[Rfam]
RNA sequence: GUGCUCUGGACAGUUGGUGUCGCUACAGAGAAACCAGCUUCCUUCAGAGCCAC
Numbered sequence: 001g002u003g004c005u006c007u008g009g010a011c012a013g014u015u016g017g018u019g020u021c022g023c024u025a026c027a028g029a030g031a032a033a034c035c036a037g038c039u040u041c042c043u044u045c046a047g048a049g050c051c052a053c
Stems, first nucleotide, its partner, number of pairs: 001053003004049006012039007019026002
This 53-nucleotide RNA sequence from Pelodiscus sinensis belongs to the Rfam family "MAT2A 3'UTR stem loop C". Taxonomically the source falls in Pelodiscus (Eukaryota, Metazoa, Chordata, Gnathostomata). The family's consensus secondary structure is taken from published work. The family's RNA type in Rfam is cis-regulatory element. The literature on the family includes a 2011 paper in Genome Res by Parker et al., "New families of human regulatory RNA structures identified by comparative analysis of vertebrate genomes".